[Rfam]
RNA sequence: AUAACAACAUUGACAAGAAAAGUAGAUGGAUGAAAGUUUUACAGAGAGACUGUCGUUGGUGCAAGCAGUUAAAUGGCAAUUCAUUGAAAAUGGUCUUCGAGUUGGCUCUUCGAUAUUUAGGUGAGUCCGGGUUCGCCCGUUAAAGCGAGCGAGUAUGAUAGUACUCAUUGAGGUAUUAAUCGUGAGAUUAAUAUAAAUUAAGGUGGUAACACGAGUGAUCUCGUCCUUUUU
Numbered sequence: 001a002u003a004a005c006a007a008c009a010u011u012g013a014c015a016a017g018a019a020a021a022g023u024a025g026a027u028g029g030a031u032g033a034a035a036g037u038u039u040u041a042c043a044g045a046g047a048g049a050c051u052g053u054c055g056u057u058g059g060u061g062c063a064a065g066c067a068g069u070u071a072a073a074u075g076g077c078a079a080u081u082c083a084u085u086g087a088a089a090a091u092g093g094u095c096u097u098c099g100a101g102u103u104g105g106c107u108c109u110u111c112g113a114u115a116u117u118u119a120g121g122u123g124a125g126u127c128c129g130g131g132u133u134c135g136c137c138c139g140u141u142a143a144a145g146c147g148a149g150c151g152a153g154u155a156u157g158a159u160a161g162u163a164c165u166c167a168u169u170g171a172g173g174u175a176u177u178a179a180u181c182g183u184g185a186g187a188u189u190a191a192u193a194u195a196a197a198u199u200a201a202g203g204u205g206g207u208a209a210c211a212c213g214a215g216u217g218a219u220c221u222c223g224u225c226c227u228u229u230u231u
Stems, first nucleotide, its partner, number of pairs: 007102002015097004025085006037073003048070006105126004110121002128139003173194007200228004211224005
Dot-bracket structure: ......((......((((......((((((......(((........((((((...........)))))))))......))))))........))))...))..((((.((........)).)))).(((......))).................................(((((((........))))))).....((((.......(((((....)))))))))...
This 231-nucleotide RNA from Globicatella sp. HMSC072A10 belongs to the Rfam family "T-box leader". The match comes from Rfam's covariance-model search (128 bits). The source organism's lineage runs through Bacteria, Bacillati, Lactobacillales, Aerococcaceae and Globicatella.